[Rfam]
Nucleotides: 147
Stems, first nucleotide, its partner, number of pairs: 034055001037052006061086002064084001066082002069078001094103003120139008
Number, partner (000 for none) and nucleotide at each position: 001000u002000u003000g004000a005000c006000a007000u008000g009000g010000u011000a012000a013000u014000g015000a016000g017000a018000a019000u020000c021000g022000c023000u024000a025000u026000g027000a028000u029000u030000a031000c032000c033000g034055c035000a036000u037052c038051c039050g040049g041048u042047c043000g044000c045000g046000a047042g048041a049040c050039u051038g052037g053000u054000c055034g056000a057000u058000a059000u060000u061086u062085g063000a064084a065000a066082a067081g068000c069078c070000c071000u072000u073000g074000g075000u076000u077000c078069g079000g080000a081067c082066u083000c084064u085062c086061a087000g088000a089000u090000a091000u092000c093000u094103c095102c096101u097000c098000a099000u100000c101096a102095g103094g104000c105000u106000a107000a108000u109000c110000a111000c112000g113000g114000u115000u116000a117000u118000u119000u120139g121138a122137c123136c124135c125134g126133g127132c128000u129000c130000u131000u132127g133126c134125c135124g136123g137122g138121u139120c140000u141000u142000u143000u144000u145000u146000u147000u
The record is a 147-nucleotide sequence from Pseudomonas corrugata, which matches "PrrF RNA" in Rfam. The family has 18 seed sequences and 107 matches in Rfam 15.1. Rfam describes the family as follows. PrrF RNA is a small RNA involved in iron homeostasis and is found exclusively in Pseudomonas species. The match comes from Rfam's covariance-model search (130 bits).